RNA sequence: GGCAACUAGCCUCCGAGAGGGGGUGUCCCACAUGCAUGAAAUCUUCGUUGUGCUCAUUGCACCGAUCCUCGUCGGUGUCGCGACUUCGCUUGUCGAUCAUUGGCUGGAUGAUGACAAAUGAGCAUGAGCUAGCUGCCAUCUAACCCACGCGUCGGUUUGCAUCCAAGCCCUCGAAAAA
Numbered sequence: 001g002g003c004a005a006c007u008a009g010c011c012u013c014c015g016a017g018a019g020g021g022g023g024u025g026u027c028c029c030a031c032a033u034g035c036a037u038g039a040a041a042u043c044u045u046c047g048u049u050g051u052g053c054u055c056a057u058u059g060c061a062c063c064g065a066u067c068c069u070c071g072u073c074g075g076u077g078u079c080g081c082g083a084c085u086u087c088g089c090u091u092g093u094c095g096a097u098c099a100u101u102g103g104c105u106g107g108a109u110g111a112u113g114a115c116a117a118a119u120g121a122g123c124a125u126g127a128g129c130u131a132g133c134u135g136c137c138a139u140c141u142a143a144c145c146c147a148c149g150c151g152u153c154g155g156u157u158u159g160c161a162u163c164c165a166a167g168c169c170c171u172c173g174a175a176a177a178a
Base pairs, nucleotide, nucleotide: 001137002136003135004134006132007131008130011022012021013020014019023037024036025035026034051124052123053122054121055120056119057118058117061076062075063074064073065072078092080089081088082087093107094106095105097103098102150173151172154169155168156167157166

The family of this 178-nucleotide sequence from Lacticaseibacillus camelliae is "Enterococcus sRNA B11". On this family, see Shioya et al., PLoS One 2011: "Genome-wide identification of small RNAs in the opportunistic pathogen Enterococcus faecalis V583". The family's RNA type in Rfam is small RNA.